[Rfam]
RNA sequence: UUGGUGGUACCCGAAAAACCAUAAAAGAGUAGGGG
Numbered sequence: 001u002u003g004g005u006g007g008u009a010c011c012c013g014a015a016a017a018a019c020c021a022u023a024a025a026a027g028a029g030u031a032g033g034g035g
Stems, first nucleotide, its partner, number of pairs: 002021004010034003

Rfam assigns this 35-nucleotide sequence to the family "DUF805b RNA". Clan: DUF805 clan. Rfam classes the family as a cis-regulatory element. The family's consensus secondary structure is taken from published work.